[Rfam]
Nucleotides: 187
Base pairs, nucleotide, nucleotide: 002013003012004011022139023138024137026135027134029132031130032129033128034125035124036123037122042118043117044116045115048113049112065093066092067091068090069089070088094109096107097106098105149186151179154175155174156173159169160168161167
Number, partner (000 for none) and nucleotide at each position: 001000a002013g003012u004011u005000u006000u007000a008000c009000g010000a011004g012003g013002c014000a015000c016000u017000u018000u019000u020000c021000u022139u023138u024137c025000a026135u027134u028000a029132g030000u031130g032129g033128g034125g035124a036123a037122g038000g039000a040000a041000c042118a043117a044116u045115g046000a047000a048113a049112a050000a051000c052000a053000c054000a055000a056000a057000a058000c059000a060000g061000g062000a063000g064000u065093a066092g067091a068090c069089u070088u071000u072000u073000a074000a075000a076000g077000u078000u079000u080000a081000a082000a083000u084000a085000g086000a087000c088070a089069g090068g091067u092066c093065u094109g095000a096107g097106u098105g099000c100000c101000u102000g103000a104000a105098c106097g107096u108000g109094c110000u111000c112049u113048u114000c115045c116044a117043u118042u119000u120000u121000a122037c123036u124035u125034u126000a127000a128033c129032c130031c131000u132029c133000c134027a135026a136000a137024g138023a139022a140000g141000u142000a143000u144000a145000c146000u147000g148000a149186u150000c151179c152000a153000g154175u155174u156173u157000c158000a159169c160168u161167g162000c163000u164000g165000a166000u167161c168160a169159g170000c171000a172000a173156g174155g175154g176000u177000a178000a179151g180000u181000u182000g183000a184000a185000a186149g187000c
A member of the RNA family "Connexin-43 internal ribosome entry site (IRES)" from Ceuthmochares aereus, 187 nucleotides long. This family represents the connexin-43 internal ribosome entry site (IRES) which allows cap independent translation during conditions such as heat shock and stress. A reference for the family is Schiavi et al. (1999), "Connexin43 mRNA contains a functional internal ribosome entry site", FEBS Lett.